RNA sequence: CAGUUUGAAAGGAGAACUCUGGUUCCUCAUACCUCCCAUCCUUUCUUUGGGGUAGUAUGAGGGAAUGGAGCUCUCCUUCCAUUUCUC
Numbered sequence: 001c002a003g004u005u006u007g008a009a010a011g012g013a014g015a016a017c018u019c020u021g022g023u024u025c026c027u028c029a030u031a032c033c034u035c036c037c038a039u040c041c042u043u044u045c046u047u048u049g050g051g052g053u054a055g056u057a058u059g060a061g062g063g064a065a066u067g068g069a070g071c072u073c074u075c076c077u078u079c080c081a082u083u084u085c086u087c
Stems, first nucleotide, its partner, number of pairs: 002086002006081002009078007017070005023064010036050003
Dot-bracket structure: .((..((.(((((((.(((((.((((((((((...(((.........)))....)))))))))).))))).))))))).))...)).

The record is an 87-nucleotide RNA from Chauna torquata, which matches "mir-1684 microRNA precursor family" in Rfam.
The source organism's lineage runs through Eukaryota, Gnathostomata, Archelosauria, Galloanserae and Chauna.
The base pairs follow the family's consensus structure, which was predicted with RNAalifold.
The family has 2 seed sequences and 120 matches in Rfam 15.1.
A search with the family's covariance model found it, with a score of 68 bits.